[Rfam]
RNA sequence: CCAGAUACUGUAAACACCCUACACUCUCAGCUGUGCACAGUGAGAAAGCUGGGAGGAGGCUGUUUACUCUCUCUGC
Numbered sequence: 001c002c003a004g005a006u007a008c009u010g011u012a013a014a015c016a017c018c019c020u021a022c023a024c025u026c027u028c029a030g031c032u033g034u035g036c037a038c039a040g041u042g043a044g045a046a047a048g049c050u051g052g053g054a055g056g057a058g059g060c061u062g063u064u065u066a067c068u069c070u071c072u073c074u075g076c
Stems, first nucleotide, its partner, number of pairs: 002075004010067007018059003024055009